[Rfam]
RNA sequence: ACGCGUGCUCCGGGGUCGGUGAAAUUCCGAACCGGCGGUGACAGUCCGCGAACCGCUCAUUCGCCUCGGCGAACGGGCGGCCGAUCCGGUGGAAUUCCGGGACCGACGGUUAAAGUCCGGAUGGGAGGCUGCACGCGG
Numbered sequence: 001a002c003g004c005g006u007g008c009u010c011c012g013g014g015g016u017c018g019g020u021g022a023a024a025u026u027c028c029g030a031a032c033c034g035g036c037g038g039u040g041a042c043a044g045u046c047c048g049c050g051a052a053c054c055g056c057u058c059a060u061u062c063g064c065c066u067c068g069g070c071g072a073a074c075g076g077g078c079g080g081c082c083g084a085u086c087c088g089g090u091g092g093a094a095u096u097c098c099g100g101g102a103c104c105g106a107c108g109g110u111u112a113a114a115g116u117c118c119g120g121a122u123g124g125g126a127g128g129c130u131g132c133a134c135g136c137g138g
Base pairs, nucleotide, nucleotide: 003136004135005134006133007132008131009128010127017029018028019027031116032115033105034104035049036048037047038046044103045102053080054079055078056077057076058075085101086100087099088098089097107119108118109117
RNA: FMN riboswitch aptamer (RFN element)